[Rfam]
RNA sequence: UGAUCCCGCGCGGGAGAGAGGGGCGCCCGCCUGGGCGGCGCCGCCCCCGCCGAAGGCGCAACCGGCCCCCGGAAACGCUCAGGCAGAAGGACCGCGUGGGGAAG
Numbered sequence: 001u002g003a004u005c006c007c008g009c010g011c012g013g014g015a016g017a018g019a020g021g022g023g024c025g026c027c028c029g030c031c032u033g034g035g036c037g038g039c040g041c042c043g044c045c046c047c048c049g050c051c052g053a054a055g056g057c058g059c060a061a062c063c064g065g066c067c068c069c070c071g072g073a074a075a076c077g078c079u080c081a082g083g084c085a086g087a088a089g090g091a092c093c094g095c096g097u098g099g100g101g102a103a104g
Stems, first nucleotide, its partner, number of pairs: 006099008020047006049084003052080002056078003062072002
Overview
The record is a 104-nucleotide RNA from Muricoccus roseus, which matches "Glycine riboswitch aptamer" in Rfam. Taxonomically the source falls in Muricoccus (Bacteria, Pseudomonadati, Pseudomonadota, Alphaproteobacteria). A search with the family's covariance model found it, with a score of 58 bits.